Description: Shown here is a 123-nucleotide RNA, a member of the family "DUF3800-I RNA". The family's consensus secondary structure is taken from published work. Rfam classes the family as a small RNA. Rfam's curators put it in the seed alignment. Rfam's curators write: Actinobacteria, Firmicutes, Fusobacteria, Proteobacteria (1 example), Tenericutes (2 examples).
RNA sequence: UAAAAUCGCAGCUAGAGAUAGACUGUAUACGCUUGGUAGCUGAUACUAUGUAUUAAGCGUAUUUAUAAGUACGCCAGUCAAGUGGGGAGAGCAAUCAUUAAUUUGGUUGCUCUUUUUUUGAUU
Numbered sequence: 001u002a003a004a005a006u007c008g009c010a011g012c013u014a015g016a017g018a019u020a021g022a023c024u025g026u027a028u029a030c031g032c033u034u035g036g037u038a039g040c041u042g043a044u045a046c047u048a049u050g051u052a053u054u055a056a057g058c059g060u061a062u063u064u065a066u067a068a069g070u071a072c073g074c075c076a077g078u079c080a081a082g083u084g085g086g087g088a089g090a091g092c093a094a095u096c097a098u099u100a101a102u103u104u105g106g107u108u109g110c111u112c113u114u115u116u117u118u119u120g121a122u123u
Base pairs, nucleotide, nucleotide: 008026009025010024011023012021013020014019030084031083032082033081034080035079039078040077041076042075043053044052045051057074058073059072060071061070062069088113089112090111091110092109093108094107095106096105097104